[Rfam]
RNA sequence: GUUCCUUCUAAGGAUUCCAUUGAGGGAGUUGAGUGUAUAGGAAGGAAAUCUUAUUGUUCAAGUUUUCCUUUGAAACCUCUUAGAAUGGAAUA
Numbered sequence: 001g002u003u004c005c006u007u008c009u010a011a012g013g014a015u016u017c018c019a020u021u022g023a024g025g026g027a028g029u030u031g032a033g034u035g036u037a038u039a040g041g042a043a044g045g046a047a048a049u050c051u052u053a054u055u056g057u058u059c060a061a062g063u064u065u066u067c068c069u070u071u072g073a074a075a076c077c078u079c080u081u082a083g084a085a086u087g088g089a090a091u092a
Stems, first nucleotide, its partner, number of pairs: 001091005006085008022070007029061005037054006